[Rfam]
A member of the RNA family "PyrR binding site" from Levilactobacillus brevis, 104 nucleotides long. A search with the family's covariance model found it, with a score of 54 bits.
RNA sequence: AGUCCUUUUAAAUUAGUCCCGUGAGGCUAAUAAGGGUCCGGUAGAAUUCAUUGAUGAAAUGAAGCUAGCGGUCUAAAUCCUUGCGGAAUUUGGACCGCUUUUUU
Numbered sequence: 001a002g003u004c005c006u007u008u009u010a011a012a013u014u015a016g017u018c019c020c021g022u023g024a025g026g027c028u029a030a031u032a033a034g035g036g037u038c039c040g041g042u043a044g045a046a047u048u049c050a051u052u053g054a055u056g057a058a059a060u061g062a063a064g065c066u067a068g069c070g071g072u073c074u075a076a077a078u079c080c081u082u083g084c085g086g087a088a089u090u091u092g093g094a095c096c097g098c099u100u101u102u103u104u
Stems, first nucleotide, its partner, number of pairs: 002037006013030006047063006067099012080086001
Rfam links the family to the GO terms pyrimidine nucleobase transport and pyrimidine nucleobase biosynthetic process. It is annotated as a cis-regulatory element. The family's consensus secondary structure is taken from published work.